[Rfam]
RNA: mir-320 microRNA precursor family
Organism: Callithrix jacchus
RNA sequence: AUAUUUUAAGGCCUUCUCUUCCUGGUUCUUCCUGUUUCUUCCUGGAGUCAGGAAAAGCUGGAUUGAGAGGGCAAAAGAAAAAAGUU
Numbered sequence: 001a002u003a004u005u006u007u008a009a010g011g012c013c014u015u016c017u018c019u020u021c022c023u024g025g026u027u028c029u030u031c032c033u034g035u036u037u038c039u040u041c042c043u044g045g046a047g048u049c050a051g052g053a054a055a056a057g058c059u060g061g062a063u064u065g066a067g068a069g070g071g072c073a074a075a076a077g078a079a080a081a082a083a084g085u086u
Stems, first nucleotide, its partner, number of pairs: 014069005022061004029054006